[Rfam]
RNA sequence: UUUUGUCAGUGACGAGACCACGGAACCUGCGCCAGGCAUGGCGCCUGAUCAGUUAUGAAGAUAGUUUCCAUGCUGCCUUCCUUCUGAGACGAGU
Numbered sequence: 001u002u003u004u005g006u007c008a009g010u011g012a013c014g015a016g017a018c019c020a021c022g023g024a025a026c027c028u029g030c031g032c033c034a035g036g037c038a039u040g041g042c043g044c045c046u047g048a049u050c051a052g053u054u055a056u057g058a059a060g061a062u063a064g065u066u067u068c069c070a071u072g073c074u075g076c077c078u079u080c081c082u083u084c085u086g087a088g089a090c091g092a093g094u
Base pairs, nucleotide, nucleotide: 002093003092004091005090
Overview:
A member of the RNA family "Small nucleolar RNA U83B" from Oryzias latipes, 94 nucleotides long. The family has 21 seed sequences and 966 matches in Rfam 15.1. Gene Ontology terms of the family: RNA processing and nucleolus. The family's RNA type in Rfam is C/D-box small nucleolar RNA. About the family: U83B belongs to the C/D family of snoRNAs. U83B like U83A has no documented RNA target and they share the same host gene with the C/D box snoRNA U43 (RPL3). N.B. U83A/B/C have no sequence similarity with the U83 snoRNA that was cloned by Jady and Kiss (2000). Lineage of the source: Eukaryota > Deuterostomia > Vertebrata > Teleostei > Oryzias. On this family, see Duga et al., Biochim Biophys Acta 2000: "The intron-containing L3 ribosomal protein gene (RPL3): sequence analysis and identification of U43 and of two novel intronic small nucleolar RNAs".